The family of this 77-nucleotide sequence from Granulicatella elegans is "SAM-III riboswitch aptamer (SMK box)". Rfam links the family to the GO terms methionine adenosyltransferase activity and regulation of translational initiation. Lineage of the source: Bacteria > Bacillota > Bacilli > Lactobacillales > Granulicatella elegans.
[Rfam]
RNA sequence: AAAAAAUAUGAUAUUCCCGAGAGGAUACACAAUGUGUAGAUGCCUUGUAACCGGAAUUGAAUGGGGGAAAAACAAUG
Numbered sequence: 001a002a003a004a005a006a007u008a009u010g011a012u013a014u015u016c017c018c019g020a021g022a023g024g025a026u027a028c029a030c031a032a033u034g035u036g037u038a039g040a041u042g043c044c045u046u047g048u049a050a051c052c053g054g055a056a057u058u059g060a061a062u063g064g065g066g067g068a069a070a071a072a073c074a075a076u077g
Stems, first nucleotide, its partner, number of pairs: 014069005021046004026038005051064002